[Rfam]
RNA sequence: AAACUUUGAGGACGGAACGGGCCGCCGUCGCCCCAGUUUAUGGGUUCGGAGAUGCAGGAAUUUCACCCUGCCUGAAUUU
Number, nucleotide and partner (000 for none) at each position: 001a079002a078003a077004c000005u075006u074007u000008g072009a000010g000011g029012a028013c027014g026015g025016a000017a000018c000019g000020g064021g063022c000023c000024g000025c015026c014027g013028u012029c011030g000031c049032c044033c043034c042035a041036g000037u000038u000039u000040a000041u035042g034043g033044g032045u000046u000047c000048g000049g031050a000051g000052a000053u000054g071055c070056a069057g068058g067059a000060a000061u000062u000063u021064c020065a000066c000067c058068c057069u056070g055071c054072c008073u000074g006075a005076a000077u003078u002079u001
RNA: skipping-rope RNA